The record is a 115-nucleotide RNA from Cellulomonas sp. Leaf395, which matches "SAM (S-adenosyl methionine) riboswitch aptamer" in Rfam. The family has 40 seed sequences and 2,360 matches in Rfam 15.1. Taxonomically the source falls in Cellulomonas (Bacteria, Bacillati, Micrococcales, Cellulomonadaceae). Its Rfam clan is "SAM clan". Pairs were carried over by alignment from the consensus structure, which is taken from published work.
[Rfam]
RNA sequence: GGUCAUGAGCGCCAGCGUCAAGCCCCGGCUCGCUGGCCGGCAACCCUCCUCCGCGGUGGGGUGCCCCGGGUGACGACCUGGCCGCGUCCCGCCCGGGGCGUGGCAAGCGCGGGGU
Numbered sequence: 001g002g003u004c005a006u007g008a009g010c011g012c013c014a015g016c017g018u019c020a021a022g023c024c025c026c027g028g029c030u031c032g033c034u035g036g037c038c039g040g041c042a043a044c045c046c047u048c049c050u051c052c053g054c055g056g057u058g059g060g061g062u063g064c065c066c067c068g069g070g071u072g073a074c075g076a077c078c079u080g081g082c083c084g085c086g087u088c089c090c091g092c093c094c095g096g097g098g099c100g101u102g103g104c105a106a107g108c109g110c111g112g113g114g115u
Stems, first nucleotide, its partner, number of pairs: 001078004009038001011037006021030002039065003044061003048056002081104010